The record is a 260-nucleotide RNA from Nesospiza acunhae, which matches "Small Cajal body-specific RNA 7" in Rfam. Rfam links the family to the GO terms RNA processing and nucleolus. Pairs were carried over by alignment from the consensus structure.

RNA sequence: GAGAAGUGAUGACACAGAGACACUUGGGUGUGUGUGGAUGGGGGGUGUGUGAGAAGGGGGUGGGGGUGUGUGUGCUGUGUGGGGGCUCUCCUGGGGGCACUGAUGGCAGUGCUGAGCCAGGAGUGCAUCUGAGGCGUGUUGGGCACCGGGGGGCCCCUCUGCAACACUGCCUGUGAUUAAAGCCCCAAGUAAGCCCACCAGGAGAGCCCCAGGCAGCCCAAGUGUCUCCAGGGUCCCAGUGAUCCUGUGCUCUGAUCUCA
Numbered sequence: 001g002a003g004a005a006g007u008g009a010u011g012a013c014a015c016a017g018a019g020a021c022a023c024u025u026g027g028g029u030g031u032g033u034g035u036g037g038a039u040g041g042g043g044g045g046u047g048u049g050u051g052a053g054a055a056g057g058g059g060g061u062g063g064g065g066g067u068g069u070g071u072g073u074g075c076u077g078u079g080u081g082g083g084g085g086c087u088c089u090c091c092u093g094g095g096g097g098c099a100c101u102g103a104u105g106g107c108a109g110u111g112c113u114g115a116g117c118c119a120g121g122a123g124u125g126c127a128u129c130u131g132a133g134g135c136g137u138g139u140u141g142g143g144c145a146c147c148g149g150g151g152g153g154c155c156c157c158u159c160u161g162c163a164a165c166a167c168u169g170c171c172u173g174u175g176a177u178u179a180a181a182g183c184c185c186c187a188a189g190u191a192a193g194c195c196c197a198c199c200a201g202g203a204g205a206g207c208c209c210c211a212g213g214c215a216g217c218c219c220a221a222g223u224g225u226c227u228c229c230a231g232g233g234u235c236c237c238a239g240u241g242a243u244c245c246u247g248u249g250c251u252c253u254g255a256u257c258u259c260a
Stems, first nucleotide, its partner, number of pairs: 001259004137166005142157002146153002